Small nucleolar RNA R66: a 69-nucleotide RNA from Triticum turgidum. Rfam's curators write: snoR66 is a C/D box small nucleolar RNA, which acts as a methylation guide for 18S ribosomal RNA in plants. snoR66 has been alternatively named snoZ269 in rice. For this family Rfam cites "The high diversity of snoRNAs in plants: identification and comparative study of 120 snoRNA genes from Oryza sativa" (Chen et al., Nucleic Acids Res, 2003). The base pairs follow the family's consensus structure, which was predicted with PFOLD. It is annotated as a C/D-box small nucleolar RNA. It scores 67 bits against the family's covariance model.

[Rfam]
RNA sequence: UCCAGUGGUGGCACAUCUUUGAGACCUGAGAUUUCUUUGAUGAAAAUCUUAAGCAUAAUACCUGAGGGC
Number, nucleotide and partner (000 for none) at each position: 001u068002c067003c066004a000005g000006u000007g000008g000009u000010g000011g000012c000013a000014c000015a000016u000017c000018u000019u000020u000021g000022a000023g000024a000025c000026c000027u000028g000029a038030g035031a000032u000033u000034u000035c030036u000037u000038u029039g000040a000041u000042g000043a000044a000045a000046a000047u000048c000049u000050u000051a000052a000053g000054c000055a000056u000057a000058a000059u000060a000061c000062c000063u000064g000065a000066g003067g002068g001069c000